[Rfam]
RNA sequence: CAAAAAGCCCGCUCAUGCGUCGGCAUCAGCGGGCUUGGUGUGCGGAGCAGCUAUCGACUCGGGCCGGCAUGGCGCUGCUCGCCGGCCUUCGCUUUAGCUGUUUCGGGUUGCCCCGCGUCCGCAAGCUGAAAUCAAAUCGACGCAAGGCCCCAUCGUAUCACGCCUUUUCGGUCGCGCGCGCG
Numbered sequence: 001c002a003a004a005a006a007g008c009c010c011g012c013u014c015a016u017g018c019g020u021c022g023g024c025a026u027c028a029g030c031g032g033g034c035u036u037g038g039u040g041u042g043c044g045g046a047g048c049a050g051c052u053a054u055c056g057a058c059u060c061g062g063g064c065c066g067g068c069a070u071g072g073c074g075c076u077g078c079u080c081g082c083c084g085g086c087c088u089u090c091g092c093u094u095u096a097g098c099u100g101u102u103u104c105g106g107g108u109u110g111c112c113c114c115g116c117g118u119c120c121g122c123a124a125g126c127u128g129a130a131a132u133c134a135a136a137u138c139g140a141c142g143c144a145a146g147g148c149c150c151c152a153u154c155g156u157a158u159c160a161c162g163c164c165u166u167u168u169c170g171g172u173c174g175c176g177c178g179c180g181c182g
Stems, first nucleotide, its partner, number of pairs: 005036009016025003041144004049093003056089002060085001062083002065081003094129006105114003115122002159178001161176003

A member of the RNA family "Burkholderia sRNA Bp2_Cand287_SIPHT" from Burkholderia thailandensis, 182 nucleotides long.
The sequence is in the family's curated seed alignment.
Pairs were carried over by alignment from the consensus structure, which was predicted with RNAalifold.
The family's RNA type in Rfam is small RNA.